Rfam assigns this 46-nucleotide sequence from Methanotorris igneus to the family "flpD RNA". The source organism's lineage runs through Archaea, Methanobacteriati, Methanobacteriota, Methanocaldococcaceae and Methanotorris igneus.
RNA sequence: ACAGAUGAGGCGCCAUCCGAAGGCUCUGCCAGGAUGGCGCUGAUGG
Numbered sequence: 001a002c003a004g005a006u007g008a009g010g011c012g013c014c015a016u017c018c019g020a021a022g023g024c025u026c027u028g029c030c031a032g033g034a035u036g037g038c039g040c041u042g043a044u045g046g
Stems, first nucleotide, its partner, number of pairs: 002045002010040004016034003022030003